[Rfam]
RNA: mir-399 microRNA precursor family
RNA sequence: AGAAGAAUAACAGGGCGAUUCUCUUAGGGCAGAAAUGUUGUGUGCAUUUGAAUGCAUGAGUGUCGAUUUCUGCCAAAGGAGAAUUGCCCUACCAUUCUACU
Numbered sequence: 001a002g003a004a005g006a007a008u009a010a011c012a013g014g015g016c017g018a019u020u021c022u023c024u025u026a027g028g029g030c031a032g033a034a035a036u037g038u039u040g041u042g043u044g045c046a047u048u049u050g051a052a053u054g055c056a057u058g059a060g061u062g063u064c065g066a067u068u069u070c071u072g073c074c075a076a077a078g079g080a081g082a083a084u085u086g087c088c089c090u091a092c093c094a095u096u097c098u099a100c101u
Stems, first nucleotide, its partner, number of pairs: 005097004012090008021081004028074008